RNA sequence: UAGACUAAGUGGAGAAGUAGUCUCCUCACUUUGCUAGGAAAGUGAGAUUCAACUCCUCCAACUUAUUUUA
Number, nucleotide and partner (000 for none) at each position: 001u000002a000003g000004a000005c000006u000007a064008a063009g062010u060011g059012g058013a057014g056015a000016a000017g054018u052019a000020g000021u000022c000023u047024c046025c000026u045027c044028a043029c042030u041031u040032u000033g000034c000035u000036a000037g000038g000039a000040a031041a030042g029043u028044g027045a026046g024047a023048u000049u000050c000051a000052a018053c000054u017055c000056c014057u013058c012059c011060a010061a000062c009063u008064u007065a000066u000067u000068u000069u000070a000